RNA sequence: CCGGUCCCCCGUCCUUGUCACUUUUCCAGCCCAGCUUUGUGAGUGCUGGACGGAGAACUGAUAAGGGUGGGCGGCCGG
Number, nucleotide and partner (000 for none) at each position: 001c000002c000003g000004g000005u000006c000007c000008c000009c000010c000011g000012u067013c066014c065015u064016u063017g062018u061019c060020a059021c000022u057023u056024u055025u054026c053027c052028a000029g000030c049031c048032c000033a000034g000035c000036u000037u000038u000039g000040u000041g000042a000043g000044u000045g000046c000047u000048g031049g030050a000051c000052g027053g026054a025055g024056a023057a022058c000059u020060g019061a018062u017063a016064a015065g014066g013067g012068u000069g000070g000071g000072c000073g000074g000075c000076c000077g000078g000